[Rfam]
RNA: Purine riboswitch aptamer
RNA sequence: UUAAAAAUAAAACGGAUCACUCAUAUAAUUUUCUAGAAUACGGCUAGAGAAGUUUCUACCGACUCGCCGGAAACGAGUCGACUAUGAGAGGCGGGUAAUGUUAG
Numbered sequence: 001u002u003a004a005a006a007a008u009a010a011a012a013c014g015g016a017u018c019a020c021u022c023a024u025a026u027a028a029u030u031u032u033c034u035a036g037a038a039u040a041c042g043g044c045u046a047g048a049g050a051a052g053u054u055u056c057u058a059c060c061g062a063c064u065c066g067c068c069g070g071a072a073a074c075g076a077g078u079c080g081a082c083u084a085u086g087a088g089a090g091g092c093g094g095g096u097a098a099u100g101u102u103a104g
Stems, first nucleotide, its partner, number of pairs: 018090001020088006029051002032048005060080007